[Rfam]
RNA sequence: GGCCGGUCACCGCCGAGUCACCGGACGCCGCCCCCGGGUGUGCGCGAGGUGAGCCGGGGACCCACCGCAGCACUGGGGUGAGUUCUCACGGACACCGGUCCGCCGGGGUCCAGAGAUAGGGCACGUCUUCCCAGCCCGAACCCGUCAGCUAACUCGGUAGGCGGUAGCUGAGGAAGAA
Numbered sequence: 001g002g003c004c005g006g007u008c009a010c011c012g013c014c015g016a017g018u019c020a021c022c023g024g025a026c027g028c029c030g031c032c033c034c035c036g037g038g039u040g041u042g043c044g045c046g047a048g049g050u051g052a053g054c055c056g057g058g059g060a061c062c063c064a065c066c067g068c069a070g071c072a073c074u075g076g077g078g079u080g081a082g083u084u085c086u087c088a089c090g091g092a093c094a095c096c097g098g099u100c101c102g103c104c105g106g107g108g109u110c111c112a113g114a115g116a117u118a119g120g121g122c123a124c125g126u127c128u129u130c131c132c133a134g135c136c137c138g139a140a141c142c143c144g145u146c147a148g149c150u151a152a153c154u155c156g157g158u159a160g161g162c163g164g165u166a167g168c169u170g171a172g173g174a175a176g177a178a
Stems, first nucleotide, its partner, number of pairs: 011163004018052005053158006063075002076143003084116004119137004
This 178-nucleotide RNA sequence from Geodermatophilus nigrescens belongs to the Rfam family "c-di-AMP riboswitch aptamer (ydaO/yuaA leader)". NCBI's taxonomy places the organism under Bacteria, Bacillati, Actinomycetota, Geodermatophilales, Geodermatophilus. It scores 64 bits against the family's covariance model.